[Rfam]
Annotation: This 181-nucleotide RNA sequence from Actinoplanes auranticolor belongs to the Rfam family "c-di-AMP riboswitch aptamer (ydaO/yuaA leader)". Rfam links the family to the GO terms cyclic-di-AMP binding and regulation of gene expression. The source organism's lineage runs through Bacteria, Bacillati, Actinomycetota, Micromonosporaceae and Actinoplanes.
RNA sequence: UCGGUAACGCCGAGUCCUGCCGCCGACCGGCCGGGACACGAACUCAGGCAUGGAGCGGGGGACCCACAGGUUCUCCGGCGCGCUCAUCGCGCGCCUCGGGGUGAAGCCGCGGCACCACAGCGGCCGGGCAACCUCAGCCCGAACCCGACAGCUGACCUCGCAGGCGUGGAGGUUCAAUCGA
Number, nucleotide and partner (000 for none) at each position: 001u000002c000003g000004g000005u000006a000007a000008c166009g165010c164011c163012g000013a000014g000015u054016c053017c052018u000019g000020c000021c000022g000023c000024c000025g000026a000027c000028c000029g000030g000031c000032c000033g000034g000035g000036a000037c000038a000039c000040g000041a000042a000043c000044u000045c000046a000047g000048g000049c000050a000051u000052g017053g016054a015055g161056c160057g159058g158059g157060g156061g000062a000063c000064c000065c098066a000067c000068a000069g000070g000071u000072u000073c000074u000075c000076c000077g000078g000079c000080g000081c000082g000083c000084u000085c000086a000087u000088c000089g000090c000091g000092c000093g000094c000095c000096u000097c000098g065099g146100g145101g144102u000103g000104a000105a000106g000107c123108c122109g121110c120111g000112g000113c000114a000115c000116c000117a000118c000119a000120g110121c109122g108123g107124c000125c000126g140127g139128g138129c137130a000131a000132c000133c000134u000135c000136a000137g129138c128139c127140c126141g000142a000143a000144c101145c100146c099147g000148a000149c000150a000151g000152c000153u000154g000155a000156c060157c059158u058159c057160g056161c055162a000163g011164g010165c009166g008167u000168g000169g000170a000171g000172g000173u000174u000175c000176a000177a000178u000179c000180g000181a000